[Rfam]
This 56-nucleotide RNA sequence from Striga asiatica belongs to the Rfam family "Plastid-psbA-3 3UTR RNA". Pairs were carried over by alignment from the consensus structure, which was predicted with LocARNA. For this family Rfam cites "Retrograde signaling in plants: A critical review focusing on the GUN pathway and beyond" (Richter et al., Plant Commun, 2023). The family's RNA type in Rfam is cis-regulatory element. Its Rfam clan is "Plastid-psbA 3UTR RNA clan". Plastid psbA-3 is a non-coding RNA (ncRNA) present in plastids.

RNA sequence: AAAGGAGCAAUAAUCCCUCUUGAUAGAAGAAGAAAGAGUUUAUUGCUCCUUAUAUU
Numbered sequence: 001a002a003a004g005g006a007g008c009a010a011u012a013a014u015c016c017c018u019c020u021u022g023a024u025a026g027a028a029g030a031a032g033a034a035a036g037a038g039u040u041u042a043u044u045g046c047u048c049c050u051u052a053u054a055u056u
Stems, first nucleotide, its partner, number of pairs: 002051012018033004
Dot-bracket structure: .((((((((((((....((((........))))......)))))))))))).....